[Rfam]
PyrR binding site: a 107-nucleotide RNA from Oceanobacillus indicireducens. Lineage of the source: Bacteria > Bacilli > Caryophanales > Bacillaceae > Oceanobacillus. The base pairs follow the family's consensus structure, which is taken from published work.

RNA sequence: ACAACUUUUAACUAAAUCCAGAGAGAUUUAAAAGGUUGCGAUUUUACAUGUCUGAUACACGGGAUAUGUCUAUCUUCUUGCAGCCUUAUUGCAAGAAGAUUUUUUUA
Numbered sequence: 001a002c003a004a005c006u007u008u009u010a011a012c013u014a015a016a017u018c019c020a021g022a023g024a025g026a027u028u029u030a031a032a033a034g035g036u037u038g039c040g041a042u043u044u045u046a047c048a049u050g051u052c053u054g055a056u057a058c059a060c061g062g063g064a065u066a067u068g069u070c071u072a073u074c075u076u077c078u079u080g081c082a083g084c085c086u087u088a089u090u091g092c093a094a095g096a097a098g099a100u101u102u103u104u105u106u107a
Stems, first nucleotide, its partner, number of pairs: 003037007013030006046069008072100012